[Rfam]
Nucleotides: 089
Stems, first nucleotide, its partner, number of pairs: 002088005008083002
Number, partner (000 for none) and nucleotide at each position: 001000u002088g003087c004086u005085u006084a007000g008083u009082c010000c011000a012000a013000a014000c015000u016000g017000g018000a019000u020000g021000a022000u023000g024000u025000u026000u027000c028000u029000u030000a031000u032000u033000a034000a035000a036000a037000a038000u039000g040000u041000c042000u043000g044000a045000a046000c047000a048000c049000a050000u051000g052000a053000a054000c055000u056000c057000u058000g059000u060000a061000g062000u063000g064000a065000u066000u067000u068000c069000a070000g071000u072000g073000a074000a075000u076000u077000a078000c079000u080000g081000a082009g083008a084006u085005a086004a087003g088002c089000u
Small nucleolar RNA SNORD72: an 89-nucleotide RNA sequence from Aegotheles bennettii. snoRNA HBII-240 belongs to the CD family of snoRNAs. It is the human orthologue of the mouse MBII-240 and is predicted to guide 2'O-ribose methylation of the large 28S rRNA at residue U4590. Rfam links the family to the GO terms nucleolus and RNA processing. Pairs were carried over by alignment from the consensus structure. The literature on the family includes a 2001 paper in EMBO J by Huttenhofer et al., "RNomics: an experimental approach that identifies 201 candidates for novel, small, non-messenger RNAs in mouse". NCBI's taxonomy places the organism under Eukaryota, Bilateria, Saurischia, Coelurosauria, Aegotheles.